RNA sequence: CGAAUUAUUAUCAUCAUUCCUAGGAGUGGUGGGUUCGUUGUUGAGUAAAUAAAGCAAACCCGCCCAAGAGGCGGGUUUC
Numbered sequence: 001c002g003a004a005u006u007a008u009u010a011u012c013a014u015c016a017u018u019c020c021u022a023g024g025a026g027u028g029g030u031g032g033g034u035u036c037g038u039u040g041u042u043g044a045g046u047a048a049a050u051a052a053a054g055c056a057a058a059c060c061c062g063c064c065c066a067a068g069a070g071g072c073g074g075g076u077u078u079c
Stems, first nucleotide, its partner, number of pairs: 011032007056078009
This 79-nucleotide sequence from Marinomonas spartinae belongs to the Rfam family "Pseudomonas sRNA P9". Pairs were carried over by alignment from the consensus structure, which was predicted with RNAalifold. It is annotated as a non-coding RNA gene. A reference for the family is Livny et al. (2006), "Identification of 17 Pseudomonas aeruginosa sRNAs and prediction of sRNA-encoding genes in 10 diverse pathogens using the bioinformatic tool sRNAPredict2", Nucleic Acids Res. The organism belongs to Marinomonas, within Bacteria. Rfam's curators write: This small RNA (sRNA) was computationally identified in the genome of the opportunistic pathogen Pseudomonas aeruginosa and its expression verified by northern blot analysis. P9 appears to be conserved in several Pseudomonas species in addition to Bordetella spp. In both Pseudomonas and Bordetella spp P9 appears to be located upstream of a predicted threonine dehydratase gene. P9 has a predicted Rho independent terminator at the 3' end but the function of P9 is unknown.